RNA sequence: AACGAUAAUAGCAAACCUAUCGAAAGGUAGGGACGCAAAGCUAAAGGGCCUUCUUGAUAAGAUGGCAGCCUGGCCACCGAAG
Numbered sequence: 001a002a003c004g005a006u007a008a009u010a011g012c013a014a015a016c017c018u019a020u021c022g023a024a025a026g027g028u029a030g031g032g033a034c035g036c037a038a039a040g041c042u043a044a045a046g047g048g049c050c051u052u053c054u055u056g057a058u059a060a061g062a063u064g065g066c067a068g069c070c071u072g073g074c075c076a077c078c079g080a081a082g
Base pairs, nucleotide, nucleotide: 003079004078011036012035016031017030018029019028020027021026034068040074041073042072045071046070047069048066049065050064